This 128-nucleotide sequence from Pan troglodytes belongs to the Rfam family "Small nucleolar RNA SNORA25". The family's consensus secondary structure was predicted with RNAfold. Taxonomically the source falls in Pan (Eukaryota, Eumetazoa, Gnathostomata, Sarcopterygii). The family's RNA type in Rfam is H/ACA-box small nucleolar RNA. Rfam describes the family as follows. ACA25 is a member of the H/ACA class of snoRNA that guide the sites of modification of uridines to pseudouridines. Rfam 15.1 lists 1,129 matches to the family in 449 species.
Nucleotides: 128
Base pairs, nucleotide, nucleotide: 002058004056005055006054014047015046016045017044018043019042020041021040027036071121072120073119075117078114079113080112081111086106087105088104089103091102092101093100094099
Number, partner (000 for none) and nucleotide at each position: 001000a002058g003000a004056u005055a006054a007000c008000u009000u010000c011000a012000a013000a014047g015046a016045g017044g018043g019042c020041u021040u022000g023000c024000g025000g026000a027036g028000c029000u030000g031000c032000a033000a034000a035000a036027c037000c038000a039000a040021g041020a042019g043018c044017u045016u046015u047014u048000a049000a050000u051000g052000u053000a054006u055005u056004a057000c058002u059000g060000a061000a062000u063000a064000u065000u066000g067000a068000a069000g070000u071121u072120c073119u074000c075117c076000a077000u078114a079113g080112g081111a082000u083000g084000c085000c086106a087105u088104a089103g090000u091102c092101a093100c094099u095000c096000a097000g098000u099094a100093g101092u102091g103089c104088u105087a106086u107000a108000u109000c110000u111081u112080c113079c114078u115000a116000a117075g118000c119073a120072g121071a122000u123000a124000u125000a126000a127000g128000a